Notes:
The record is a 253-nucleotide sequence from Streptomyces corynorhini, which matches "Streptomyces sRNA 4677" in Rfam. Rfam describes the family as follows. Located in the intergenic region between anti-sigma factor SCO4677 gene and a putative regulatory protein gene SCO4676. scr4677 expression requires the SCO4677 activity and scr4677 sRNA itself seem to affect the levels of the SCO4676-associated transcripts. It is annotated as a small RNA. The base pairs follow the family's consensus structure.

RNA sequence: GGUUUCGGCGGCUGCGGUGCUCUUUGUCCAAAGGACGUGAGAGGAGAAAGAACCCCACCAAGCCCCACCCCACCCCACCCGCCCGUCGCUCGCACUCACUCGGGCGGGUGAACAUCCCUGGUUUUGGUGGAUUUGGUGUCCCUCGGCUGCCUUACGCUUUGCAGGACACAUCACCCCAGACAUACGUCGGCCCCCGGCCGGGACUAGCGAUCCCGAUCGGGGGCCUGACCACCGAGGAAGAAGACGCUUCCUG
Numbered sequence: 001g002g003u004u005u006c007g008g009c010g011g012c013u014g015c016g017g018u019g020c021u022c023u024u025u026g027u028c029c030a031a032a033g034g035a036c037g038u039g040a041g042a043g044g045a046g047a048a049a050g051a052a053c054c055c056c057a058c059c060a061a062g063c064c065c066c067a068c069c070c071c072a073c074c075c076c077a078c079c080c081g082c083c084c085g086u087c088g089c090u091c092g093c094a095c096u097c098a099c100u101c102g103g104g105c106g107g108g109u110g111a112a113c114a115u116c117c118c119u120g121g122u123u124u125u126g127g128u129g130g131a132u133u134u135g136g137u138g139u140c141c142c143u144c145g146g147c148u149g150c151c152u153u154a155c156g157c158u159u160u161g162c163a164g165g166a167c168a169c170a171u172c173a174c175c176c177c178a179g180a181c182a183u184a185c186g187u188c189g190g191c192c193c194c195c196g197g198c199c200g201g202g203a204c205u206a207g208c209g210a211u212c213c214c215g216a217u218c219g220g221g222g223g224c225c226u227g228a229c230c231a232c233c234g235a236g237g238a239a240g241a242a243g244a245c246g247c248u249u250c251c252u253g
Base pairs, nucleotide, nucleotide: 007233008232010230016083017082018081019080096111097110098109099108100107101106126162129159130158189225190224191223192222193221195219196218200214201213202212203211236251237250238249239248240247